A member of the RNA family "Histone 3' UTR stem-loop" from Cyprinus carpio, 45 nucleotides long. The family's consensus secondary structure is taken from published work. Rfam's curators write: The mRNAs of metazoan histone genes lack a poly-A tail. 3' end processing occurs at a site between a highly conserved stem-loop (modelled by this family) and a purine rich region around 20 nts downstream (the histone downstream element, or HDE). The stem-loop is bound by a 31 kDa stem-loop binding protein (SLBP - also termed the histone hairpin binding protein, or HBP). Together with U7 snRNA binding of the HDE, SLBP binding nucleate s the formation of the processing complex. A search with the family's covariance model found it, with a score of 35 bits. Lineage of the source: Eukaryota > Bilateria > Teleostei > Otomorpha > Cyprinus carpio. The family's RNA type in Rfam is cis-regulatory element. Rfam links the family to the GO term mRNA 3'-end processing by stem-loop binding and cleavage.
[Rfam]
RNA sequence: ACAAAGGCUCUUUUAAGAGCCACCUACUUGAUCUGAUGGAGAGCA
Numbered sequence: 001a002c003a004a005a006g007g008c009u010c011u012u013u014u015a016a017g018a019g020c021c022a023c024c025u026a027c028u029u030g031a032u033c034u035g036a037u038g039g040a041g042a043g044c045a
Stems, first nucleotide, its partner, number of pairs: 006021006